RNA sequence: UGUUAAGCACUUACUAUGUACCCAGCACUUAGAACAGUGCUGGGUACAUAGUAAGUGCUUAACA
Numbered sequence: 001u002g003u004u005a006a007g008c009a010c011u012u013a014c015u016a017u018g019u020a021c022c023c024a025g026c027a028c029u030u031a032g033a034a035c036a037g038u039g040c041u042g043g044g045u046a047c048a049u050a051g052u053a054a055g056u057g058c059u060u061a062a063c064a
Base pairs, nucleotide, nucleotide: 001064002063003062004061005060006059007058008057009056010055011054012053013052014051015050016049017048018047019046020045021044022043023042024041025040026039027038028037029036
RNA: mir-3116 microRNA precursor family
Organism: Ornithorhynchus anatinus